The family of this 577-nucleotide part of an RNA from Prevotella nigrescens is "Bacterial small subunit ribosomal RNA". The source organism's lineage runs through Bacteria, Bacteroidota, Bacteroidales, Prevotellaceae and Prevotella nigrescens. For this family Rfam cites "The comparative RNA web (CRW) site: an online database of comparative sequence and structure information for ribosomal, intron, and other RNAs" (Cannone et al., BMC Bioinformatics, 2002).
[Rfam]
RNA sequence: UGACGGGGGCCCGCACAAGCGGAGGAACAUGUGGUUUAAUUCGAUGAUACGCGAGGAACCUUACCCGGGCUUGAAUUGCAGUCGCAGCCCACAGAGACGUGGGCUUCCCUUCGGGGCGUCUGUGAAGGUGCUGCAUGGUUGUCGUCAGCUCGUGCCGUGAGGUGUCGGCUUAAGUGCCAUAACGAGCGCAACCCCCUUUCCCAGUUGCCAUCGGGUUAUGCCGGGCACUCUGGGGACACUGCCACCGCAAGGUGCGAGGAAGGUGGGGAUGACGUCAAAUCAGCACGGCCCUUACGUCCGGGGCUACACACGUGUUACAAUGGCCGGUACAGAGGGACGGUGCAAUGCAAGUUGCAUCCAAUCUUGAAAUCCGGUCCCAGUUCGGACUGGGGUCUGCAACCCGACCCCACGAAGCUGGAUUCGCUAGUAAUCGCGCAUCAGCCAUGGCGCGGUGAAUACGUUCCCGGGCCUUGUACACACCGCCCGUCAAGCCAUGAAAGCCGGGGGUGCCUGAAGUUCGUGACCGCGAGGAGCGACCUAGGGCAAGACCGGUGAUUGGGGCUAAGUCGUAACAAGG
Numbered sequence: 001u002g003a004c005g006g007g008g009g010c011c012c013g014c015a016c017a018a019g020c021g022g023a024g025g026a027a028c029a030u031g032u033g034g035u036u037u038a039a040u041u042c043g044a045u046g047a048u049a050c051g052c053g054a055g056g057a058a059c060c061u062u063a064c065c066c067g068g069g070c071u072u073g074a075a076u077u078g079c080a081g082u083c084g085c086a087g088c089c090c091a092c093a094g095a096g097a098c099g100u101g102g103g104c105u106u107c108c109c110u111u112c113g114g115g116g117c118g119u120c121u122g123u124g125a126a127g128g129u130g131c132u133g134c135a136u137g138g139u140u141g142u143c144g145u146c147a148g149c150u151c152g153u154g155c156c157g158u159g160a161g162g163u164g165u166c167g168g169c170u171u172a173a174g175u176g177c178c179a180u181a182a183c184g185a186g187c188g189c190a191a192c193c194c195c196c197u198u199u200c201c202c203a204g205u206u207g208c209c210a211u212c213g214g215g216u217u218a219u220g221c222c223g224g225g226c227a228c229u230c231u232g233g234g235g236a237c238a239c240u241g242c243c244a245c246c247g248c249a250a251g252g253u254g255c256g257a258g259g260a261a262g263g264u265g266g267g268g269a270u271g272a273c274g275u276c277a278a279a280u281c282a283g284c285a286c287g288g289c290c291c292u293u294a295c296g297u298c299c300g301g302g303g304c305u306a307c308a309c310a311c312g313u314g315u316u317a318c319a320a321u322g323g324c325c326g327g328u329a330c331a332g333a334g335g336g337a338c339g340g341u342g343c344a345a346u347g348c349a350a351g352u353u354g355c356a357u358c359c360a361a362u363c364u365u366g367a368a369a370u371c372c373g374g375u376c377c378c379a380g381u382u383c384g385g386a387c388u389g390g391g392g393u394c395u396g397c398a399a400c401c402c403g404a405c406c407c408c409a410c411g412a413a414g415c416u417g418g419a420u421u422c423g424c425u426a427g428u429a430a431u432c433g434c435g436c437a438u439c440a441g442c443c444a445u446g447g448c449g450c451g452g453u454g455a456a457u458a459c460g461u462u463c464c465c466g467g468g469c470c471u472u473g474u475a476c477a478c479a480c481c482g483c484c485c486g487u488c489a490a491g492c493c494a495u496g497a498a499a500g501c502c503g504g505g506g507g508u509g510c511c512u513g514a515a516g517u518u519c520g521u522g523a524c525c526g527c528g529a530g531g532a533g534c535g536a537c538c539u540a541g542g543g544c545a546a547g548a549c550c551g552g553u554g555a556u557u558g559g560g561g562c563u564a565a566g567u568c569g570u571a572a573c574a575a576g577g
Stems, first nucleotide, its partner, number of pairs: 001477002003474003007471007015461002019424005024318001026316008034307002040055004064302007076125003080121002083118002087104006106116004127291002130289004136285002138280003141276001143274002148187006154163003167178003193268004198236007208225002212223003239259002242256001243254004322376006334365003339358002344353003383414001388409007430453007480576001482573001485569002490563004495558003500553005508545004516538001518536004524531002